The record is a 110-nucleotide RNA sequence from Sediminitomix flava, which matches "SAM riboswitch aptamer (S box leader)" in Rfam. A search with the family's covariance model found it, with a score of 80 bits. NCBI's taxonomy places the organism under Bacteria, Pseudomonadati, Bacteroidota, Cytophagales, Sediminitomix. The family's consensus secondary structure is taken from published work.

RNA sequence: AGCUUAUCAAGAAAGACCGAGGGACUGGGCCCGAUGAAGUCUUAGCAACCCCCUUCCAAAUAGGCAGGUGCUAAUUCCCAUUUCUGACAAGAGUCAGGAGAAGAUAAGUU
Dot-bracket structure: ((((((((....(((((...(((....[[)))......)))))((((.((.(((.......)))..))))))...(].]..((((((......))))))..)))))))))